[Rfam]
A member of the RNA family "PyrR binding site" from Bacillus sp. FJAT-27916, 128 nucleotides long. Rfam 15.1 lists 1,498 matches to the family in 930 species. The family's consensus secondary structure is taken from published work.
RNA sequence: AAGUCCUUUAAUACAGUCCAGAGAGGCUGAAAAGGUACGUGAUGAUACUUGAACAUGGAGAAAUACUGUAUUUUUCUAUGAUGAUUGCGAUCUGAAUCCUUUUGCCUCUGGCAAAAGGAUUUUUUAUU
Numbered sequence: 001a002a003g004u005c006c007u008u009u010a011a012u013a014c015a016g017u018c019c020a021g022a023g024a025g026g027c028u029g030a031a032a033a034g035g036u037a038c039g040u041g042a043u044g045a046u047a048c049u050u051g052a053a054c055a056u057g058g059a060g061a062a063a064u065a066c067u068g069u070a071u072u073u074u075u076c077u078a079u080g081a082u083g084a085u086u087g088c089g090a091u092c093u094g095a096a097u098c099c100u101u102u103u104g105c106c107u108c109u110g111g112c113a114a115a116a117g118g119a120u121u122u123u124u125u126a127u128u
Stems, first nucleotide, its partner, number of pairs: 005035005014029005050084001052082001054080010094122013